[Rfam]
RNA sequence: CGGGGAUUCAGCAGCCUCCCGCCUCACAGACGCCCCCGCGUCCAAGGUCUGC
Numbered sequence: 001c002g003g004g005g006a007u008u009c010a011g012c013a014g015c016c017u018c019c020c021g022c023c024u025c026a027c028a029g030a031c032g033c034c035c036c037c038g039c040g041u042c043c044a045a046g047g048u049c050u051g052c
Base pairs, nucleotide, nucleotide: 001021002020004019005018006017011052012051013050014049029042030041031040032039033038
RNA: chrB-b RNA